[Rfam]
RNA: mir-71 microRNA precursor family
RNA sequence: UUGCUGUGAAAGACUUGAGUAGUGAGACGCUUAUAGCGUUGUUGUCUGCGGUUCGGCGCCUCAUACUAAGUCUUUCCCGGCUCA
Number, nucleotide and partner (000 for none) at each position: 001u000002u000003g000004c000005u000006g000007u000008g076009a075010a074011a073012g072013a071014c070015u069016u000017g000018a067019g066020u000021a064022g000023u063024g062025a061026g060027a000028c058029g057030c056031u055032u000033a000034u000035a000036g000037c000038g000039u000040u000041g000042u000043u000044g000045u000046c000047u000048g000049c000050g000051g000052u000053u000054c000055g031056g030057c029058g028059c000060c026061u025062c024063a023064u021065a000066c019067u018068a000069a015070g014071u013072c012073u011074u010075u009076c008077c000078c000079g000080g000081c000082u000083c000084a000